[Rfam]
Notes
The family of this 376-nucleotide part of an RNA from Bdellovibrio bacteriovorus is "Bacterial large subunit ribosomal RNA". Lineage of the source: Bacteria > Bdellovibrionia > Bdellovibrionales > Pseudobdellovibrionaceae > Bdellovibrio bacteriovorus. The base pairs follow the family's consensus structure, which is taken from published work.
RNA sequence: GUUGAACUCGGGUGAAAAACCCGGGCGCCGAAAACUCAAGGAUUCCUGGGUAAAGAUAAUCUUCCCAGGGUUAGUCGAGCCCUAAGACGAGGCCAAGUGGCGUAGUCGAUGGCAAAACGGUUAAUAUUCCGUUACCUAGCAAAAUGUGUUUAAGGAAUGACGGUGUAGGAUAUCACAGCCUCUUAUUGGAUUGAGGUGUAAGCAUGUAGGAGGAUCAGUAGGCAAAUCCGCUGGUCGUAACUCUGAGGUGUGAAUGCGAGGGACUUGUCCCGGAAGUGUGAAAAGCCAUGCAUCCAAGAAAAGUUUCGUAAAUUUAGUUUUGUUAGCUCGUACCGUAAACCGACUCAGGUGAGUGGGGUGAAUAUCCUAAGGCGAU
Numbered sequence: 001g002u003u004g005a006a007c008u009c010g011g012g013u014g015a016a017a018a019a020c021c022c023g024g025g026c027g028c029c030g031a032a033a034a035c036u037c038a039a040g041g042a043u044u045c046c047u048g049g050g051u052a053a054a055g056a057u058a059a060u061c062u063u064c065c066c067a068g069g070g071u072u073a074g075u076c077g078a079g080c081c082c083u084a085a086g087a088c089g090a091g092g093c094c095a096a097g098u099g100g101c102g103u104a105g106u107c108g109a110u111g112g113c114a115a116a117a118c119g120g121u122u123a124a125u126a127u128u129c130c131g132u133u134a135c136c137u138a139g140c141a142a143a144a145u146g147u148g149u150u151u152a153a154g155g156a157a158u159g160a161c162g163g164u165g166u167a168g169g170a171u172a173u174c175a176c177a178g179c180c181u182c183u184u185a186u187u188g189g190a191u192u193g194a195g196g197u198g199u200a201a202g203c204a205u206g207u208a209g210g211a212g213g214a215u216c217a218g219u220a221g222g223c224a225a226a227u228c229c230g231c232u233g234g235u236c237g238u239a240a241c242u243c244u245g246a247g248g249u250g251u252g253a254a255u256g257c258g259a260g261g262g263a264c265u266u267g268u269c270c271c272g273g274a275a276g277u278g279u280g281a282a283a284a285g286c287c288a289u290g291c292a293u294c295c296a297a298g299a300a301a302a303g304u305u306u307c308g309u310a311a312a313u314u315u316a317g318u319u320u321u322g323u324u325a326g327c328u329c330g331u332a333c334c335g336u337a338a339a340c341c342g343a344c345u346c347a348g349g350u351g352a353g354u355g356g357g358g359u360g361a362a363u364a365u366c367c368u369a370a371g372g373c374g375a376u
Stems, first nucleotide, its partner, number of pairs: 007025006026374004034354004040334002045069006054062002076330004081112002086107003090103001092101003116133005136326010149312002154307005162294004168287002173281005178197005198255002202251004209244003213236007221229002260271004340349002356368003
About this RNA: The family has 102 seed sequences and 51,934 matches in Rfam 15.1.